Shown here is a 136-nucleotide sequence from Orthohepacivirus hominis, a member of the family "Hepatitis C alternative reading frame stem-loop".
RNA sequence: AACCGCCGGCCACAGGACGUCAAGUUCCCAGGCGGCGGUCAGAUCGUUGGUGGAGUUUACGUACUACCACGCAGGGGCCCCAGGUUGGGUGUGCGUGCAGUGCGCAAGACUUCCGAGCGGUCACAACCUCGCAGUA
Numbered sequence: 001a002a003c004c005g006c007c008g009g010c011c012a013c014a015g016g017a018c019g020u021c022a023a024g025u026u027c028c029c030a031g032g033c034g035g036c037g038g039u040c041a042g043a044u045c046g047u048u049g050g051u052g053g054a055g056u057u058u059a060c061g062u063a064c065u066a067c068c069a070c071g072c073a074g075g076g077g078c079c080c081c082a083g084g085u086u087g088g089g090u091g092u093g094c095g096u097g098c099a100g101u102g103c104g105c106a107a108g109a110c111u112u113c114c115g116a117g118c119g120g121u122c123a124c125a126a127c128c129u130c131g132c133a134g135u136a
Stems, first nucleotide, its partner, number of pairs: 003038006010031001015027004042122006048115003052112002055110004062102002068097006077090004
Record summary: Rfam links the family to the GO term regulation of translation. For this family Rfam cites "The Role of the RNA-RNA Interactome in the Hepatitis C Virus Life Cycle" (Romero-Lopez and Berzal-Herranz, Int J Mol Sci, 2020). NCBI's taxonomy places the organism under Viruses, Orthornavirae, Kitrinoviricota, Hepaciviridae, Orthohepacivirus. It is annotated as a cis-regulatory element.